[Rfam]
RNA sequence: GAGCAGUUAUUUCGUUUUAGAAUCCAAACGCUUUGCCCAACUACUUGGCAACGGUAAAGCGUAGGAAUUCUAAAGCAAAAACACC
Numbered sequence: 001g002a003g004c005a006g007u008u009a010u011u012u013c014g015u016u017u018u019a020g021a022a023u024c025c026a027a028a029c030g031c032u033u034u035g036c037c038c039a040a041c042u043a044c045u046u047g048g049c050a051a052c053g054g055u056a057a058a059g060c061g062u063a064g065g066a067a068u069u070c071u072a073a074a075g076c077a078a079a080a081a082c083a084c085c
Stems, first nucleotide, its partner, number of pairs: 010079003014076008023067001025065001028062007036054002
Dot-bracket structure: .........(((.((((((((.(.(..(((((((.((...............)).)))))))..).).)))))))))))......